[Rfam]
RNA sequence: GGAGGAGUUCCCGAGUUGGCCAAAGGGGACGGACUGUAAAUCCGUUAGCUUUGCUUUCACUGGUUCGAAUCCAGUCUCCUCCA
Numbered sequence: 001g002g003a004g005g006a007g008u009u010c011c012c013g014a015g016u017u018g019g020c021c022a023a024a025g026g027g028g029a030c031g032g033a034c035u036g037u038a039a040a041u042c043c044g045u046u047a048g049c050u051u052u053g054c055u056u057u058c059a060c061u062g063g064u065u066c067g068a069a070u071c072c073a074g075u076c077u078c079c080u081c082c083a
Base pairs, nucleotide, nucleotide: 001082002081003080004079005078006077007076010027011026012025029045030044031043032042033041059075060074061073062072063071